[Rfam]
Nucleotides: 038
Base pairs, nucleotide, nucleotide: 006026007025008024009023010022016036
Number, partner (000 for none) and nucleotide at each position: 001000a002000u003000g004000g005000g006026a007025g008024a009023g010022g011000u012000u013000c014000g015000c016036g017000a018000a019000c020000u021000c022010c023009c024008u025007c026006u027000a028000u029000a030000a031000a032000a033000a034000a035000c036016u037000a038000u